[Rfam]
RNA sequence: UUGGUGGAUUUGGAGACUUCAACUUGUAGAAUUGGAAAAUUUGAUGACAUCAACUUAUAGACUUUACAGAUCUAAAUACUUCAACU
Dot-bracket structure: ((((.(..((((((....(.(...((((...((((..............))))..))))....).)....))))))..).))))..
The family of this 86-nucleotide RNA from Capsicum baccatum is "MIR8024 microRNA precursor family". Lineage of the source: Eukaryota > Streptophytina > Tracheophyta > Gunneridae > Capsicum.